A member of the RNA family "Small nucleolar RNA SNORA4", 137 nucleotides long. About the family: ACA4 is a member of the H/ACA class of snoRNA that guide the sites of modification of uridines to pseudouridines. Rfam classes the family as an H/ACA-box small nucleolar RNA. Gene Ontology terms of the family: RNA processing and nucleolus. Clan: SNORA4 clan.

RNA sequence: CUACCAAAAGUUAAUUUUUUAUGGGGAAGGCUUUCUAAAUAACCUUUACCAAUUUGGGCUAUUUGGGAGAGUAAAGGAAAGACCACACUCCACAGCGGGCUAUACCAAUAGUUCACUACUAUUUUGUGGUCUACAUU
Numbered sequence: 001c002u003a004c005c006a007a008a009a010g011u012u013a014a015u016u017u018u019u020u021a022u023g024g025g026g027a028a029g030g031c032u033u034u035c036u037a038a039a040u041a042a043c044c045u046u047u048a049c050c051a052a053u054u055u056g057g058g059c060u061a062u063u064u065g066g067g068a069g070a071g072u073a074a075a076g077g078a079a080a081g082a083c084c085a086c087a088c089u090c091c092a093c094a095g096c097g098g099g100c101u102a103u104a105c106c107a108a109u110a111g112u113u114c115a116c117u118a119c120u121a122u123u124u125u126g127u128g129g130u131c132u133a134c135a136u137u
Stems, first nucleotide, its partner, number of pairs: 004066005012061002015058003021054001025050002028047001029044002032041001080132002083129005094117002097114007